[Rfam]
RNA sequence: AAGAAAGUAAGUCCCGCCCCGGACAGGGGCAAUGCCAAUAGACCACUAAGAAAACAAGUUCCACAGAAGAAGCAGAAGCAUCGAAAAUCACCCGCGCAUCAGCGCCCCAAGU
Numbered sequence: 001a002a003g004a005a006a007g008u009a010a011g012u013c014c015c016g017c018c019c020c021g022g023a024c025a026g027g028g029g030c031a032a033u034g035c036c037a038a039u040a041g042a043c044c045a046c047u048a049a050g051a052a053a054a055c056a057a058g059u060u061c062c063a064c065a066g067a068a069g070a071a072g073c074a075g076a077a078g079c080a081u082c083g084a085a086a087a088u089c090a091c092c093c094g095c096g097c098a099u100c101a102g103c104g105c106c107c108c109a110a111g112u
Stems, first nucleotide, its partner, number of pairs: 012076002016030005059068003095104003
Dot-bracket structure: ...........((..(((((.....)))))............................(((....)))......))..................(((....)))........

Burkholderia sRNA Bp1_Cand684_SIPHT: a 112-nucleotide sequence from Caballeronia telluris. The family's consensus secondary structure was predicted with RNAalifold. By type it is a small RNA. A reference for the family is Khoo et al. (2012), "Computational discovery and RT-PCR validation of novel Burkholderia conserved and Burkholderia pseudomallei unique sRNAs", BMC Genomics.